[Rfam]
RNA: antisense RNA of dnaA mRNA
RNA sequence: UUUUGCAUUCGGCUUAUUUUUCAAAAUGCCAUUACCGACGGCAUGCAAUAAGUGGGUUUUACCUAGGCCGGUGCCACCAUA
Numbered sequence: 001u002u003u004u005g006c007a008u009u010c011g012g013c014u015u016a017u018u019u020u021u022c023a024a025a026a027u028g029c030c031a032u033u034a035c036c037g038a039c040g041g042c043a044u045g046c047a048a049u050a051a052g053u054g055g056g057u058u059u060u061a062c063c064u065a066g067g068c069c070g071g072u073g074c075c076a077c078c079a080u081a
Stems, first nucleotide, its partner, number of pairs: 004043003009038004016032002021028001052077003056074002061072003